Small nucleolar RNA snR8: a 162-nucleotide RNA from Lachancea fermentati.
It scores 158 bits against the family's covariance model.
The family's consensus secondary structure was predicted with WAR.
[Rfam]
RNA sequence: GUGAUACGAAAUAAUAAUGCAUUCUAUUCACUGUGCCAUCUGUAUUUCUGUAGAUGAACAGAGGGGAAAAGAAGCGCUAGAAAGAAUUCGUGAACGUCCUCAUACUGUCCGAGCCGAUUAGCUAGUCUAGGCUCGGUCGGUAACUGCGUGAGCGAGACACCU
Numbered sequence: 001g002u003g004a005u006a007c008g009a010a011a012u013a014a015u016a017a018u019g020c021a022u023u024c025u026a027u028u029c030a031c032u033g034u035g036c037c038a039u040c041u042g043u044a045u046u047u048c049u050g051u052a053g054a055u056g057a058a059c060a061g062a063g064g065g066g067a068a069a070a071g072a073a074g075c076g077c078u079a080g081a082a083a084g085a086a087u088u089c090g091u092g093a094a095c096g097u098c099c100u101c102a103u104a105c106u107g108u109c110c111g112a113g114c115c116g117a118u119u120a121g122c123u124a125g126u127c128u129a130g131g132c133u134c135g136g137u138c139g140g141u142a143a144c145u146g147c148g149u150g151a152g153c154g155a156g157a158c159a160c161c162u
Stems, first nucleotide, its partner, number of pairs: 019077002022073002031063002034060002037056005087156005094149003105140003109136007